[Rfam]
RNA sequence: CAUCCCUGUGAGGAAUGAUAUGAAAAUUUAAAGUAGUGGACUGAUCUCUGUUGAUGAGCAACCAAUUCUGAGGGAUG
Dot-bracket structure: ((((((.................................................................))))))
Numbered sequence: 001c002a003u004c005c006c007u008g009u010g011a012g013g014a015a016u017g018a019u020a021u022g023a024a025a026a027u028u029u030a031a032a033g034u035a036g037u038g039g040a041c042u043g044a045u046c047u048c049u050g051u052u053g054a055u056g057a058g059c060a061a062c063c064a065a066u067u068c069u070g071a072g073g074g075a076u077g
Stems, first nucleotide, its partner, number of pairs: 001077006
Small nucleolar RNA R21: a 77-nucleotide RNA sequence from Camellia sinensis. Pairs were carried over by alignment from the consensus structure, which was predicted with PFOLD. The literature on the family includes a 2001 paper in J Mol Biol by Barneche et al., "Identification of 66 box C/D snoRNAs in Arabidopsis thaliana: extensive gene duplications generated multiple isoforms predicting new ribosomal RNA 2'-O-methylation sites". Gene Ontology terms of the family: RNA processing and nucleolus.